Rfam assigns this 65-nucleotide RNA sequence from Tribolium castaneum to the family "mir-2 microRNA precursor family".
RNA sequence: UCGCUCAUCAACUGGAUGUGAAAUGGAUUUGUAGCUCAUAUCACAGCCAGCUUUGAUGAGCGCUA
Dot-bracket structure: ....(((((((.(((.(((((..((.............))))))).)))...)))))))......
Pairs were carried over by alignment from the consensus structure, which was predicted with PFOLD. On this family, see Ambros, Cell 2001: "microRNAs: tiny regulators with great potential". Rfam links the family to the GO terms RISC complex and miRNA-mediated post-transcriptional gene silencing.